About this RNA:
pemK RNA: a 60-nucleotide sequence.

RNA sequence: AUAAUGAUACUUCCGGCGACGGCUAUUCCAUAGGAAUGGAUAGAGGUUAGAAUCCUAUGA
Numbered sequence: 001a002u003a004a005u006g007a008u009a010c011u012u013c014c015g016g017c018g019a020c021g022g023c024u025a026u027u028c029c030a031u032a033g034g035a036a037u038g039g040a041u042a043g044a045g046g047u048u049a050g051a052a053u054c055c056u057a058u059g060a
Stems, first nucleotide, its partner, number of pairs: 012057001013022003023043003027040003044056003